The family of this 62-nucleotide RNA from Microtus ochrogaster is "MAT2A 3'UTR stem loop F".
The family's consensus secondary structure is taken from published work.
The literature on the family includes a 2011 paper in Genome Res by Parker et al., "New families of human regulatory RNA structures identified by comparative analysis of vertebrate genomes".
The match comes from Rfam's covariance-model search (60 bits).

RNA sequence: CGAGAAAGCUGAUUGGCUGGUGUGGUACAGAGAAGCCAUCUUGUUUACAUGCUUAUUCCAUG
Numbered sequence: 001c002g003a004g005a006a007a008g009c010u011g012a013u014u015g016g017c018u019g020g021u022g023u024g025g026u027a028c029a030g031a032g033a034a035g036c037c038a039u040c041u042u043g044u045u046u047a048c049a050u051g052c053u054u055a056u057u058c059c060a061u062g
Base pairs, nucleotide, nucleotide: 002058003057004056006054007053008052009051011045012044013043015041016040018038019037020036021035022028023027